[Rfam]
Rfam assigns this 46-nucleotide RNA sequence from Albula glossodonta to the family "Histone 3' UTR stem-loop".
It is annotated as a cis-regulatory element.
The mRNAs of metazoan histone genes lack a poly-A tail. 3' end processing occurs at a site between a highly conserved stem-loop (modelled by this family) and a purine rich region around 20 nts downstream (the histone downstream element, or HDE).
RNA sequence: CCAAAGGCUCUUUUAAGAGCCACCCAUCUCCUUCAAAAAGUACAGU
Dot-bracket structure: .....((((((....)))))).........................